[Rfam]
RNA sequence: CCGUCCGCCCCGUGGAACACCCUGCCCACCCCGGCAUCCGCACGGUUACUCUGGCCCCGUACACCCUCCACCGAGGGUGUGAAGCCGACAGCCGUCGCAUCCCAGGGAGCUCAUCCAUG
Numbered sequence: 001c002c003g004u005c006c007g008c009c010c011c012g013u014g015g016a017a018c019a020c021c022c023u024g025c026c027c028a029c030c031c032c033g034g035c036a037u038c039c040g041c042a043c044g045g046u047u048a049c050u051c052u053g054g055c056c057c058c059g060u061a062c063a064c065c066c067u068c069c070a071c072c073g074a075g076g077g078u079g080u081g082a083a084g085c086c087g088a089c090a091g092c093c094g095u096c097g098c099a100u101c102c103c104a105g106g107g108a109g110c111u112c113a114u115c116c117a118u119g
Stems, first nucleotide, its partner, number of pairs: 060081004065076004084098002087096003
A member of the RNA family "Streptomyces-metH RNA" from Streptomyces sp. MS191, 119 nucleotides long. Rfam classes the family as a small RNA. Pairs were carried over by alignment from the consensus structure, which is taken from published work.